The family of this 66-nucleotide RNA sequence from Brumimicrobium salinarum is "DUF805 RNA".

RNA sequence: UUUUAAUGGAGUUCAGAAACCAUCAAAAACGGGGCGAAGCCGAAAAGCCAUACGAGUAGGCAAACA
Numbered sequence: 001u002u003u004u005a006a007u008g009g010a011g012u013u014c015a016g017a018a019a020c021c022a023u024c025a026a027a028a029a030c031g032g033g034g035c036g037a038a039g040c041c042g043a044a045a046a047g048c049c050a051u052a053c054g055a056g057u058a059g060g061c062a063a064a065c066a
Base pairs, nucleotide, nucleotide: 006023007022008021009020033049034048035047040060041059

The organism belongs to Brumimicrobium, within Bacteria. The family is grouped with related families in Rfam's "DUF805 clan".